The family of this 168-nucleotide RNA sequence from Acholeplasma hippikon is "Lysine riboswitch aptamer". NCBI's taxonomy places the organism under Bacteria, Bacillati, Mollicutes, Acholeplasmatales, Acholeplasma. Riboswitches are metabolite binding domains within certain messenger RNAs that serve as precision sensors for their corresponding targets.
[Rfam]
RNA sequence: AAGAUAUUUAGAGGUUGCACUUAGAAAUAGUAAAAUAUGGAGCUGGUAAGCGAUGAAGUAUUCGAAAGGUCAAAGUGCCGAAUAGCAAUUAAGACAUUAGUUGACUAUGGGGUUAUAGGAAAAACUUAUAACACUCCUACAUUUUUAUGUAGAGGCGCUAAAUAAUAA
Numbered sequence: 001a002a003g004a005u006a007u008u009u010a011g012a013g014g015u016u017g018c019a020c021u022u023a024g025a026a027a028u029a030g031u032a033a034a035a036u037a038u039g040g041a042g043c044u045g046g047u048a049a050g051c052g053a054u055g056a057a058g059u060a061u062u063c064g065a066a067a068g069g070u071c072a073a074a075g076u077g078c079c080g081a082a083u084a085g086c087a088a089u090u091a092a093g094a095c096a097u098u099a100g101u102u103g104a105c106u107a108u109g110g111g112g113u114u115a116u117a118g119g120a121a122a123a124a125c126u127u128a129u130a131a132c133a134c135u136c137c138u139a140c141a142u143u144u145u146u147a148u149g150u151a152g153a154g155g156c157g158c159u160a161a162a163u164a165a166u167a168a
Base pairs, nucleotide, nucleotide: 006163007162008161009160010159011158017078018077019076020075021074022073024071025070034062035061036060037059038058082108083107084106085105086103087102088101089100090099091098092097109135110134112132113131114130115129116128117127118126119125137152138151139150140149141148142147